[Rfam]
RNA sequence: AUGAGGCGCGCCUAGGGUUCCGCUGCAGUCGCAGGUCUGGUCCGAGAGGUGCAGGCGACCGGCAACGGUGCUGGUCGCUCCACGGCGGGACAAAAGCCCGGGAGAC
Numbered sequence: 001a002u003g004a005g006g007c008g009c010g011c012c013u014a015g016g017g018u019u020c021c022g023c024u025g026c027a028g029u030c031g032c033a034g035g036u037c038u039g040g041u042c043c044g045a046g047a048g049g050u051g052c053a054g055g056c057g058a059c060c061g062g063c064a065a066c067g068g069u070g071c072u073g074g075u076c077g078c079u080c081c082a083c084g085g086c087g088g089g090a091c092a093a094a095a096g097c098c099c100g101g102g103a104g105a106c
Stems, first nucleotide, its partner, number of pairs: 008052005015043002020040002022037001023034004054079011081101001083104001087099003
About this RNA: Rfam assigns this 106-nucleotide sequence from Mycolicibacterium tokaiense to the family "Guanidine-I riboswitch aptamer". The match comes from Rfam's covariance-model search (83 bits). The organism belongs to Mycobacterium (subgen. Mycolicibacterium), within Bacteria. Its family is annotated with regulation of gene expression in the Gene Ontology.